[Rfam]
The family of this 161-nucleotide RNA from Octodon degus is "U1 spliceosomal RNA".
About the family: U1 is a small nuclear RNA (snRNA) component of the spliceosome (involved in pre-mRNA splicing). Its 5' end forms complementary base pairs with the 5' splice junction, thus defining the 5' donor site of an intron.
Taxonomically the source falls in Octodon (Eukaryota, Gnathostomata, Dipnotetrapodomorpha, Boreoeutheria).

RNA sequence: AUAUUUACCUGGCAGGGGAGAUACCACUAUCAUAAAGCUGGUUUUCCAGGGCGAGGCUUAUCCAUUACACUCCGGAUGUGCUGACCCCCGCGAUUUCCACAAAUGCGGGAAACUCCACUGCAGAAUUUGUGGUAGUGGUGGAUUGCCUUCGUACUUACUGC
Numbered sequence: 001a002u003a004u005u006u007a008c009c010u011g012g013c014a015g016g017g018g019a020g021a022u023a024c025c026a027c028u029a030u031c032a033u034a035a036a037g038c039u040g041g042u043u044u045u046c047c048a049g050g051g052c053g054a055g056g057c058u059u060a061u062c063c064a065u066u067a068c069a070c071u072c073c074g075g076a077u078g079u080g081c082u083g084a085c086c087c088c089c090g091c092g093a094u095u096u097c098c099a100c101a102a103a104u105g106c107g108g109g110a111a112a113c114u115c116c117a118c119u120g121c122a123g124a125a126u127u128u129g130u131g132g133u134a135g136u137g138g139u140g141g142a143u144u145g146c147c148u149u150c151g152u153a154c155u156u157a158c159u160g161c
Base pairs, nucleotide, nucleotide: 012121013120014119015118017047018046019045020044021043023042024041025040026039049088050087051086053085055082056081057080059078060077061076062075063074092115093114094112095110096109098108138161139160140159141158145154